[Rfam]
RNA sequence: GGAAUUUCGUCAGAGCCGACCUCCUCCCCGGCGAUGACGAAUACGGCCAACCUUCAUCCUCCUCCCGGAGGUUGGCCACCGAAACGGCGCCCGCCGGACCUCCUCCCCCGGCGGGCGUUGUUG
Numbered sequence: 001g002g003a004a005u006u007u008c009g010u011c012a013g014a015g016c017c018g019a020c021c022u023c024c025u026c027c028c029c030g031g032c033g034a035u036g037a038c039g040a041a042u043a044c045g046g047c048c049a050a051c052c053u054u055c056a057u058c059c060u061c062c063u064c065c066c067g068g069a070g071g072u073u074g075g076c077c078a079c080c081g082a083a084a085c086g087g088c089g090c091c092c093g094c095c096g097g098a099c100c101u102c103c104u105c106c107c108c109c110g111g112c113g114g115g116c117g118u119u120g121u122u123g
Stems, first nucleotide, its partner, number of pairs: 007040003011036002015032003045077010087118011